Rfam assigns this 56-nucleotide RNA sequence from Bagarius yarrelli to the family "U7 small nuclear RNA". From the family's description: Animal histone pre-mRNAs are spliced by a different mechanism than nuclear pre-mRNAs and self-splicing introns.
RNA sequence: GAAAAUUUGCUCUUUUAGUAUUUGUCCAGUAGGUUUCUUCGGAAGAAGAAGCCCCC
Numbered sequence: 001g002a003a004a005a006u007u008u009g010c011u012c013u014u015u016u017a018g019u020a021u022u023u024g025u026c027c028a029g030u031a032g033g034u035u036u037c038u039u040c041g042g043a044a045g046a047a048g049a050a051g052c053c054c055c056c
Stems, first nucleotide, its partner, number of pairs: 032053009